Rfam assigns this 125-nucleotide RNA from Myotis myotis to the family "Small nucleolar RNA SNORA38".
Rfam 15.1 lists 628 matches to the family in 149 species.
It scores 116 bits against the family's covariance model.
ACA38 is a member of the H/ACA class of snoRNA that guide the sites of modification of uridines to pseudouridines.
RNA sequence: CCCUCCUGCAAAGGCCUGUCUGUGGUUCCCUGUCUUCGGACAUAAGAAUUAGAGGCAAAGAAAUGUGGACUUGGGGGUGUGGAGCCAGCUUGCUCUGCAGGCUCAAGACCAACCAUCCCACACAG
Number, nucleotide and partner (000 for none) at each position: 001c000002c055003c054004u053005c052006c000007u000008g000009c000010a000011a000012a000013g000014g000015c000016c000017u042018g041019u040020c039021u038022g000023u000024g030025g029026u000027u000028c000029c025030c024031u000032g000033u000034c000035u000036u000037c000038g021039g020040a019041c018042a017043u000044a000045a000046g000047a000048a000049u000050u000051a000052g005053a004054g003055g002056c000057a000058a000059a000060g000061a000062a000063a000064u000065g000066u000067g118068g117069a116070c000071u115072u000073g000074g000075g000076g000077g000078u000079g000080u000081g000082g000083a000084g000085c000086c000087a103088g102089c101090u100091u099092g098093c097094u000095c000096u000097g093098c092099a091100g090101g089102c088103u087104c000105a000106a000107g000108a000109c000110c000111a000112a000113c000114c000115a071116u069117c068118c067119c000120a000121c000122a000123c000124a000125g000